[Rfam]
RNA: MIR2617 microRNA precursor family
Organism: Medicago truncatula
RNA sequence: AUGACGUGUAGCAUGCCCGUUGUGGAACUACUCUGAUGUAUAUUUUGUUAUUUAAUUGCUUUUGGGUAACGGGGUGUUACAAGGGC
Number, nucleotide and partner (000 for none) at each position: 001a000002u000003g000004a000005c083006g000007u081008g080009u079010a078011g077012c076013a075014u074015g000016c073017c072018c071019g070020u069021u068022g000023u000024g000025g000026a000027a000028c000029u000030a000031c000032u000033c000034u000035g000036a000037u000038g000039u000040a000041u000042a000043u000044u000045u000046u000047g000048u000049u000050a000051u000052u000053u000054a000055a000056u000057u000058g000059c000060u000061u000062u000063u000064g000065g000066g000067u000068a021069a020070c019071g018072g017073g016074g014075u013076g012077u011078u010079a009080c008081a007082a000083g005084g000085g000086c000